[Rfam]
RNA sequence: CGACAGCAGUGAUGAUAAUGACAGAAUGUCGUUUUGCUGAAUGCAUGUGAUGGUUUUAAGUCACUACCUCAUCUGAGCUGUCA
Numbered sequence: 001c002g003a004c005a006g007c008a009g010u011g012a013u014g015a016u017a018a019u020g021a022c023a024g025a026a027u028g029u030c031g032u033u034u035u036g037c038u039g040a041a042u043g044c045a046u047g048u049g050a051u052g053g054u055u056u057u058a059a060g061u062c063a064c065u066a067c068c069u070c071a072u073c074u075g076a077g078c079u080g081u082c083a
Stems, first nucleotide, its partner, number of pairs: 002082006

This 83-nucleotide RNA sequence from Poecilia reticulata belongs to the Rfam family "Small nucleolar RNA SNORD11B".
Lineage of the source: Eukaryota > Bilateria > Eurypterygia > Atherinomorphae > Poecilia.
The family has 37 seed sequences and 733 matches in Rfam 15.1.
Its Rfam clan is "SNORD11 clan".
A reference for the family is Yang et al. (2006), "snoSeeker: an advanced computational package for screening of guide and orphan snoRNA genes in the human genome", Nucleic Acids Res.
It is annotated as a C/D-box small nucleolar RNA.
It scores 70 bits against the family's covariance model.